The family of this 304-nucleotide RNA sequence from Sesamum indicum is "Plant signal recognition particle RNA". Its family is annotated with SRP-dependent cotranslational protein targeting to membrane, signal sequence recognition and signal recognition particle, endoplasmic reticulum targeting in the Gene Ontology. A reference for the family is Wild et al. (2002), "Towards the structure of the mammalian signal recognition particle", Curr Opin Struct Biol. The family's consensus secondary structure is taken from published work. The family is grouped with related families in Rfam's "SRP clan".
RNA sequence: GCCGAGCUUUGUAGCGCAAGCUUGUAACCCAAGUGGGGGCUUCAAAGUGAUUGAACAUUGGGCCUGCCCAACCAGUUGGGUCAUUGGUUGCUAAAUGCCGGCUUGCCUGUUCCAAGCGAGGAGUUGGGCUAUGUAGCUCAAGCGAAGGUUUGGGCUUCGUGCCUCUUAGAGUGGAGGGCAUUGCGUCAGGCUGGCUUCACAGAGCAACGAAAACCUCCCGCUCUUUGCAGUGGAGAGAUAACAAGCUGGUGCUUCCUUGGCUCAAAAAGCUGGCUGAGUUGGCCUUAAUUGAACAAUCAUUUUU
Numbered sequence: 001g002c003c004g005a006g007c008u009u010u011g012u013a014g015c016g017c018a019a020g021c022u023u024g025u026a027a028c029c030c031a032a033g034u035g036g037g038g039g040c041u042u043c044a045a046a047g048u049g050a051u052u053g054a055a056c057a058u059u060g061g062g063c064c065u066g067c068c069c070a071a072c073c074a075g076u077u078g079g080g081u082c083a084u085u086g087g088u089u090g091c092u093a094a095a096u097g098c099c100g101g102c103u104u105g106c107c108u109g110u111u112c113c114a115a116g117c118g119a120g121g122a123g124u125u126g127g128g129c130u131a132u133g134u135a136g137c138u139c140a141a142g143c144g145a146a147g148g149u150u151u152g153g154g155c156u157u158c159g160u161g162c163c164u165c166u167u168a169g170a171g172u173g174g175a176g177g178g179c180a181u182u183g184c185g186u187c188a189g190g191c192u193g194g195c196u197u198c199a200c201a202g203a204g205c206a207a208c209g210a211a212a213a214c215c216u217c218c219c220g221c222u223c224u225u226u227g228c229a230g231u232g233g234a235g236a237g238a239u240a241a242c243a244a245g246c247u248g249g250u251g252c253u254u255c256c257u258u259g260g261c262u263c264a265a266a267a268a269g270c271u272g273g274c275u276g277a278g279u280u281g282g283c284c285u286u287a288a289u290u291g292a293a294c295a296a297u298c299a300u301u302u303u304u
Base pairs, nucleotide, nucleotide: 001040002039003038004023005022006021007020008019009018028037029036030035044303045302046301047300048299049298050297051296052295053294056291057290058288059287060286061284062283063282064281066279069276070275072273073272074271075270076269077268078263079262080261081260082259083258086255090252092251093250098249099248100247101246102245103244104243105242107237108236110235111234112233113232114231116228117227118226119225120224121223122222123221124220126165127164128163130161131160132159133158135156136155137154138153139152140151141150142149143148166171173218174217175216176215177214182211184209185208186207191202192201193200